[Rfam]
RNA sequence: UGGGUCGGCCGGACGGUCGCGUCGCGCACGGGAUUCCCGUGACGUGCCGAGGAACGUCCGGGCUCCACAGGGCAGGGCGGUGGGUAACACCCACCCGGAGCGAUCCGCGAGACAGUGCCACAGAGAGCAGACCGCCCCGGUUCGACCGGGGUAAGGGUGAAAGGGUGGUGUAAGAGACCACCGGGGUCGCGGUGACGCGACUCGCACGGCAAACCUCGCCCGGAGCAAGGCCAGACAGGGGACUAUGACGCGGCCCGCCGAGUCCCCGGGUAGGCCGCUGGAGCGGCACGGCAACGUGUCGCCGAGAGAGAUGACCGUCGAUGGGGCUUCGGCCCCGGAACAGAACCCGGCGUACAGGCCGGCCCAUUCG
Numbered sequence: 001u002g003g004g005u006c007g008g009c010c011g012g013a014c015g016g017u018c019g020c021g022u023c024g025c026g027c028a029c030g031g032g033a034u035u036c037c038c039g040u041g042a043c044g045u046g047c048c049g050a051g052g053a054a055c056g057u058c059c060g061g062g063c064u065c066c067a068c069a070g071g072g073c074a075g076g077g078c079g080g081u082g083g084g085u086a087a088c089a090c091c092c093a094c095c096c097g098g099a100g101c102g103a104u105c106c107g108c109g110a111g112a113c114a115g116u117g118c119c120a121c122a123g124a125g126a127g128c129a130g131a132c133c134g135c136c137c138c139g140g141u142u143c144g145a146c147c148g149g150g151g152u153a154a155g156g157g158u159g160a161a162a163g164g165g166u167g168g169u170g171u172a173a174g175a176g177a178c179c180a181c182c183g184g185g186g187u188c189g190c191g192g193u194g195a196c197g198c199g200a201c202u203c204g205c206a207c208g209g210c211a212a213a214c215c216u217c218g219c220c221c222g223g224a225g226c227a228a229g230g231c232c233a234g235a236c237a238g239g240g241g242a243c244u245a246u247g248a249c250g251c252g253g254c255c256c257g258c259c260g261a262g263u264c265c266c267c268g269g270g271u272a273g274g275c276c277g278c279u280g281g282a283g284c285g286g287c288a289c290g291g292c293a294a295c296g297u298g299u300c301g302c303c304g305a306g307a308g309a310g311a312u313g314a315c316c317g318u319c320g321a322u323g324g325g326g327c328u329u330c331g332g333c334c335c336c337g338g339a340a341c342a343g344a345a346c347c348c349g350g351c352g353u354a355c356a357g358g359c360c361g362g363c364c365c366a367u368u369c370g
Stems, first nucleotide, its partner, number of pairs: 001366010011355001012319007020049002023046004054353003058350005063225004070256004075221005080094005095109001096107004110216002115214002117210003132156002134152008164182006183205001184203008229276004238267006250258002283302008
The record is a 370-nucleotide RNA sequence from Microbacterium immunditiarum, which matches "Bacterial RNase P class A" in Rfam. A search with the family's covariance model found it, with a score of 280 bits.